[Rfam]
RNA sequence: GGACCAAGCAACCAUGGGUCUUCGCCCAAGUGGGGACAUGAAGGUGUUGAGACAUGGUCUCAGCCCAUGUAGUCGGGUCUAUGGUUGGCUCUUUACUGGCUUGCCCAUUCCAAGCUAGGAGUUGGCCCAUGAGGCUCAAGUGAAGACUUGUGGUUUCAUGGGCCUUAGAGUGGGAGAGACAGCGUGAAGCUGGUUUAACAGAGCAACGAUAACUCCCCUCUUCUAGCAGUGGAAGGAUAACAGGCCGUUGCCACCUGGGCCCAAUAUGGCUAGGUGAGCUGUGGCUUUAUUGGACCAGCACUUUU
Numbered sequence: 001g002g003a004c005c006a007a008g009c010a011a012c013c014a015u016g017g018g019u020c021u022u023c024g025c026c027c028a029a030g031u032g033g034g035g036a037c038a039u040g041a042a043g044g045u046g047u048u049g050a051g052a053c054a055u056g057g058u059c060u061c062a063g064c065c066c067a068u069g070u071a072g073u074c075g076g077g078u079c080u081a082u083g084g085u086u087g088g089c090u091c092u093u094u095a096c097u098g099g100c101u102u103g104c105c106c107a108u109u110c111c112a113a114g115c116u117a118g119g120a121g122u123u124g125g126c127c128c129a130u131g132a133g134g135c136u137c138a139a140g141u142g143a144a145g146a147c148u149u150g151u152g153g154u155u156u157c158a159u160g161g162g163c164c165u166u167a168g169a170g171u172g173g174g175a176g177a178g179a180c181a182g183c184g185u186g187a188a189g190c191u192g193g194u195u196u197a198a199c200a201g202a203g204c205a206a207c208g209a210u211a212a213c214u215c216c217c218c219u220c221u222u223c224u225a226g227c228a229g230u231g232g233a234a235g236g237a238u239a240a241c242a243g244g245c246c247g248u249u250g251c252c253a254c255c256u257g258g259g260c261c262c263a264a265u266a267u268g269g270c271u272a273g274g275u276g277a278g279c280u281g282u283g284g285c286u287u288u289a290u291u292g293g294a295c296c297a298g299c300a301c302u303u304u305u
Stems, first nucleotide, its partner, number of pairs: 001020002004017003008013001025034003040305010053292002055289003058284002061281003066276003070272005075262007084254001086253003090250001097247007105236002108234005114227008124164013137150005165170001172217005181210001183208003190201003
RNA: Plant signal recognition particle RNA
Organism: Tripterygium wilfordii